[Rfam]
RNA sequence: CGACAAAAUUUUCGCCGAGCUAUCUUAGCUAAAUUUGAGCAUUAGGUUCAGACAUGCUGCUAUAGCCGCAAACCCAUUGAAAAUGCGCGUUUGCCAGGGUUAACAAGGAAACUUGUUUGCCUCCCGACAUUGGAAAGGUGACAUGUUAACAGACAA
Numbered sequence: 001c002g003a004c005a006a007a008a009u010u011u012u013c014g015c016c017g018a019g020c021u022a023u024c025u026u027a028g029c030u031a032a033a034u035u036u037g038a039g040c041a042u043u044a045g046g047u048u049c050a051g052a053c054a055u056g057c058u059g060c061u062a063u064a065g066c067c068g069c070a071a072a073c074c075c076a077u078u079g080a081a082a083a084u085g086c087g088c089g090u091u092u093g094c095c096a097g098g099g100u101u102a103a104c105a106a107g108g109a110a111a112c113u114u115g116u117u118u119g120c121c122u123c124c125c126g127a128c129a130u131u132g133g134a135a136a137g138g139u140g141a142c143a144u145g146u147u148a149a150c151a152g153a154c155a156a
Stems, first nucleotide, its partner, number of pairs: 006147001012141005019066005026059004034052007068094005097122004102117006123133002
Molybdenum/Tungsten riboswitch aptamer (Moco RNA motif): a 156-nucleotide RNA from Colwellia chukchiensis. It scores 81 bits against the family's covariance model. The literature on the family includes a 2008 paper in Mol Microbiol by Regulski et al., "in molybdenum cofactor and tungsten cofactor metabolism".